[Rfam]
RNA sequence: CACCUCAGCGCGCUUUGCUUACGUGGACACAAAUCGCGCUUACAUGGACGCAAUUUGCUGCCACAUCAUCAAAGCGCACUGACGUGG
Numbered sequence: 001c002a003c004c005u006c007a008g009c010g011c012g013c014u015u016u017g018c019u020u021a022c023g024u025g026g027a028c029a030c031a032a033a034u035c036g037c038g039c040u041u042a043c044a045u046g047g048a049c050g051c052a053a054u055u056u057g058c059u060g061c062c063a064c065a066u067c068a069u070c071a072a073a074g075c076g077c078a079c080u081g082a083c084g085u086g087g
Base pairs, nucleotide, nucleotide: 001086002085003084005082006081007080008079010077011076012075013074014073015072016071017070019068021066023064024063025062026061030057031056032055033054034053036051037050038049040047041046
Source information: A member of the RNA family "MIR7486 microRNA precursor family" from Gossypium gossypioides, 87 nucleotides long. The organism belongs to Gossypium, within Eukaryota. It scores 68 bits against the family's covariance model.